Notes:
Shown here is an 81-nucleotide RNA sequence, a member of the family "S15-Methanomicrobia ribosomal protein leader". For this family Rfam cites "Discovery of 20 novel ribosomal leader candidates in bacteria and archaea" (Eckert and Weinberg, BMC Microbiol, 2020). It is annotated as a cis-regulatory leader. The base pairs follow the family's consensus structure, which is taken from published work.
RNA sequence: AGCACUUUUUAAUAAAUGUGCUGACAGAUGUAAGUCCGACGUGCUGUUACGGCACGGCCUCAACCAAGGCUUUGGGAUUAC
Numbered sequence: 001a002g003c004a005c006u007u008u009u010u011a012a013u014a015a016a017u018g019u020g021c022u023g024a025c026a027g028a029u030g031u032a033a034g035u036c037c038g039a040c041g042u043g044c045u046g047u048u049a050c051g052g053c054a055c056g057g058c059c060u061c062a063a064c065c066a067a068g069g070c071u072u073u074g075g076g077a078u079u080a081c
Stems, first nucleotide, its partner, number of pairs: 001022005030081004036076002041055005056071004
Dot-bracket structure: (((((............))))).......((((..((...(((((.....)))))((((........))))...)).))))